The family of this 100-nucleotide RNA sequence from Sphenodon punctatus is "Small nucleolar RNA SNORD16". Rfam 15.1 lists 1,321 matches to the family in 655 species. It scores 101 bits against the family's covariance model. The family is grouped with related families in Rfam's "SNORD16 clan".

RNA sequence: UGCCAUGAUGUCGUAAUUUGCGUCUUACUUUGUACUCGGUGACAGUUGCCUGCUGUUACUAUACCGGUACAGAAGUCUGAUGAACAGCUAAUACUGAGCA
Dot-bracket structure: (((.................((((.....(((((....(((((((.......))))).....))...)))))......))))...............)))